[Rfam]
RNA sequence: GCGUGCGUUCGAGGGGCGUCCGGCUCUAAGCCGGGACCCCGGGCCCGGGUCAGCCCCUCGGACACUGC
Numbered sequence: 001g002c003g004u005g006c007g008u009u010c011g012a013g014g015g016g017c018g019u020c021c022g023g024c025u026c027u028a029a030g031c032c033g034g035g036a037c038c039c040c041g042g043g044c045c046c047g048g049g050u051c052a053g054c055c056c057c058u059c060g061g062a063c064a065c066u067g068c
Base pairs, nucleotide, nucleotide: 007063008062009061010060011059012058013057014056015055016054017053020034021033022032023031024030036050037049038048039047
Dot-bracket structure: ......(((((((((((..(((((.....))))).((((.......))))..))))))))))).....